[Rfam]
RNA sequence: UCAUGUCCCUCACUCACCCCUAAAGAUCCCAGGUGGACAAGGGAAUAGUCAGAGGGAUC
Dot-bracket structure: .....(((((...(((((......[[[[[[.)))))...))))).........]]]]]]
Antizyme RNA frameshifting stimulation element: a 59-nucleotide RNA sequence from Dipodomys ordii. The base pairs follow the family's consensus structure, which is taken from published work. The source organism's lineage runs through Eukaryota, Opisthokonta, Metazoa, Chordata and Dipodomys. From the family's description: This family represents a structural element which is found in antizyme mRNA and is known to promote frameshifting. Antizyme genes have have two partially overlapping open reading frames, the second, which encodes the functional protein requires +1 translational frameshifting. The family has 13 seed sequences and 1,595 matches in Rfam 15.1.